[Rfam]
RNA: MIR397 microRNA precursor family
Organism: Acer saccharum
RNA sequence: CGGAAAAACGUCAUUGAGUGCAGCGUUGAUGAAAUUAUAUUCGGACUGUAUUUGAUCGAUUUCGAUUUUCAAUUUCACCGGCGCUGCAUUCAAUCAUGUUUUUC
Numbered sequence: 001c002g003g004a005a006a007a008a009c010g011u012c013a014u015u016g017a018g019u020g021c022a023g024c025g026u027u028g029a030u031g032a033a034a035u036u037a038u039a040u041u042c043g044g045a046c047u048g049u050a051u052u053u054g055a056u057c058g059a060u061u062u063c064g065a066u067u068u069u070c071a072a073u074u075u076c077a078c079c080g081g082c083g084c085u086g087c088a089u090u091c092a093a094u095c096a097u098g099u100u101u102u103u104c
Stems, first nucleotide, its partner, number of pairs: 006101006013094016030077003